[Rfam]
RNA sequence: UGGUGGUGAUGUAUGAACUCACGAUGGUCUGCAUAGCCCCCACCACCAUGGGUGGGGGCUGCUGAGAAUGCCAGUCUGGCAGUUGCUGAACCAAGGAG
Numbered sequence: 001u002g003g004u005g006g007u008g009a010u011g012u013a014u015g016a017a018c019u020c021a022c023g024a025u026g027g028u029c030u031g032c033a034u035a036g037c038c039c040c041c042a043c044c045a046c047c048a049u050g051g052g053u054g055g056g057g058g059c060u061g062c063u064g065a066g067a068a069u070g071c072c073a074g075u076c077u078g079g080c081a082g083u084u085g086c087u088g089a090a091c092c093a094a095g096g097a098g
Stems, first nucleotide, its partner, number of pairs: 001093004